[Rfam]
RNA: Purine riboswitch aptamer
RNA sequence: UGCAUAAGGAAAUAACAGUUUCGUAUAAUUCCGGGAAUCGGCCCGGAAGUCUCUACGAGAUCACCGUAAAUGAUCUGGCUACGAACAUAUAAGGAGCGUAU
Numbered sequence: 001u002g003c004a005u006a007a008g009g010a011a012a013u014a015a016c017a018g019u020u021u022c023g024u025a026u027a028a029u030u031c032c033g034g035g036a037a038u039c040g041g042c043c044c045g046g047a048a049g050u051c052u053c054u055a056c057g058a059g060a061u062c063a064c065c066g067u068a069a070a071u072g073a074u075c076u077g078g079c080u081a082c083g084a085a086c087a088u089a090u091a092a093g094g095a096g097c098g099u100a101u
Base pairs, nucleotide, nucleotide: 020085021084022083023082024081025080029048030047031046032045033044034043035042058076059075060074061073062072063071